[Rfam]
RNA sequence: GUGUGAAUGAUGAAAGAAGUUCGGAUUCCCACUGAUGUUUACAGUGAUUUCAUAACCAGCUACUUCUGACACAC
Numbered sequence: 001g002u003g004u005g006a007a008u009g010a011u012g013a014a015a016g017a018a019g020u021u022c023g024g025a026u027u028c029c030c031a032c033u034g035a036u037g038u039u040u041a042c043a044g045u046g047a048u049u050u051c052a053u054a055a056c057c058a059g060c061u062a063c064u065u066c067u068g069a070c071a072c073a074c
Stems, first nucleotide, its partner, number of pairs: 001074005
This 74-nucleotide RNA sequence from Taxus chinensis belongs to the Rfam family "Small nucleolar RNA R12".
A search with the family's covariance model found it, with a score of 59 bits.
snoR12 is a C/D box small nucleolar RNA, which acts as a methylation guide for 25S ribosomal RNA in plants. snoR12 has been alternatively named snoZ44 in Arabidopsis and snoZ131 in rice.